RNA: Small nucleolar RNA snoR97
Organism: Malus domestica
RNA sequence: UUUUUCGAUCGGGUGUAGGGUCUGAAAUAACUCAUAAAUUGGAGUGUUGUCUAUCAGCUUCAUCUUGUGUUAUUGGUCGAGACUGGAACAGCACUACAUCU
Numbered sequence: 001u002u003u004u005u006c007g008a009u010c011g012g013g014u015g016u017a018g019g020g021u022c023u024g025a026a027a028u029a030a031c032u033c034a035u036a037a038a039u040u041g042g043a044g045u046g047u048u049g050u051c052u053a054u055c056a057g058c059u060u061c062a063u064c065u066u067g068u069g070u071u072a073u074u075g076g077u078c079g080a081g082a083c084u085g086g087a088a089c090a091g092c093a094c095u096a097c098a099u100c101u
Base pairs, nucleotide, nucleotide: 043095044094045093046092047091048090049089059087060086061085063082064081065080066079